[Rfam]
RNA: t44 RNA
RNA sequence: CUUAAACUACGUUAUAACACACACGUAUCGGCACAUGCGGCGGGGUGCUUUAAAGCGUUUAUUCGCUUUGGGGUCGGCGUUAUGGGAUACGUGGAGGCAUAAC
Dot-bracket structure: .....................((((((((....((((.(.((....(((((((((..........))))))))))).)..)))).))))))))..........